[Rfam]
RNA: MIR397 microRNA precursor family
Organism: Capsicum baccatum
RNA sequence: CUUAGAAACAUCAUUGAGUGCAGCGUUGAUGACAUAUUUGAGAAUUCCCCUUUCUCGGUUUUUUUCAUCUACGCUGCACUCAAUCAUGUUUUUA
Numbered sequence: 001c002u003u004a005g006a007a008a009c010a011u012c013a014u015u016g017a018g019u020g021c022a023g024c025g026u027u028g029a030u031g032a033c034a035u036a037u038u039u040g041a042g043a044a045u046u047c048c049c050c051u052u053u054c055u056c057g058g059u060u061u062u063u064u065u066c067a068u069c070u071a072c073g074c075u076g077c078a079c080u081c082a083a084u085c086a087u088g089u090u091u092u093u094a
Base pairs, nucleotide, nucleotide: 006091007090008089009088010087011086013084014083015082016081017080018079019078020077021076022075023074024073025072026071028069030067031066032065